[Rfam]
RNA: Archaeal RNase P
RNA sequence: AGGCCUCGGCUGGCCGCUGACGGGCCGCAGAGGCCCGGGGAAACUCCGCCCUCCCCGCGGCGCCGGGGCCCCGCAAGGGGCGCGGGUGAUACCCGCGGCAACGGCACAGAAACGGCACGCCCGCCCAGGGAGGACGGUGAAGCGGCGAGGGCCCGCCGGCGACGGCGGGCCAGUAACCCGCAGAGGACCUGGGCGGGUGCGUUGAAACGGCCGUCCCCCGGGGAGCAAGGCGGCGCGCCGAUGAGGGCCGCGCGAGCGGCGCGCCGGGUCCGCUUAGUCGGAUGCGGCCGAAGGUACAGAAGGCGGGUUAUAGCCGGGGCCC
Numbered sequence: 001a002g003g004c005c006u007c008g009g010c011u012g013g014c015c016g017c018u019g020a021c022g023g024g025c026c027g028c029a030g031a032g033g034c035c036c037g038g039g040g041a042a043a044c045u046c047c048g049c050c051c052u053c054c055c056c057g058c059g060g061c062g063c064c065g066g067g068g069c070c071c072c073g074c075a076a077g078g079g080g081c082g083c084g085g086g087u088g089a090u091a092c093c094c095g096c097g098g099c100a101a102c103g104g105c106a107c108a109g110a111a112a113c114g115g116c117a118c119g120c121c122c123g124c125c126c127a128g129g130g131a132g133g134a135c136g137g138u139g140a141a142g143c144g145g146c147g148a149g150g151g152c153c154c155g156c157c158g159g160c161g162a163c164g165g166c167g168g169g170c171c172a173g174u175a176a177c178c179c180g181c182a183g184a185g186g187a188c189c190u191g192g193g194c195g196g197g198u199g200c201g202u203u204g205a206a207a208c209g210g211c212c213g214u215c216c217c218c219c220g221g222g223g224a225g226c227a228a229g230g231c232g233g234c235g236c237g238c239c240g241a242u243g244a245g246g247g248c249c250g251c252g253c254g255a256g257c258g259g260c261g262c263g264c265c266g267g268g269u270c271c272g273c274u275u276a277g278u279c280g281g282a283u284g285c286g287g288c289c290g291a292a293g294g295u296a297c298a299g300a301a302g303g304c305g306g307g308u309u310a311u312a313g314c315c316g317g318g319g320c321c322c
Stems, first nucleotide, its partner, number of pairs: 002321002005318007012289006021037005042309003046306005051225004056254004063221005068081005082096005097216002102213004118201003121196008142181004229271002235262005